The family of this 73-nucleotide RNA from Canibacter oris is "tRNA". Lineage of the source: Bacteria > Bacillati > Micrococcales > Microbacteriaceae > Canibacter. The family's consensus secondary structure is taken from published work.
[Rfam]
RNA sequence: GCGCCUCUAGCUCAAUUGGCAGAGCAACAGACUCUUAAUCUGUGGGUUCGGGGUUCGAUCCCCCGGGGGCGUA
Numbered sequence: 001g002c003g004c005c006u007c008u009a010g011c012u013c014a015a016u017u018g019g020c021a022g023a024g025c026a027a028c029a030g031a032c033u034c035u036u037a038a039u040c041u042g043u044g045g046g047u048u049c050g051g052g053g054u055u056c057g058a059u060c061c062c063c064c065g066g067g068g069g070c071g072u073a
Stems, first nucleotide, its partner, number of pairs: 001072007010025004027043005049065005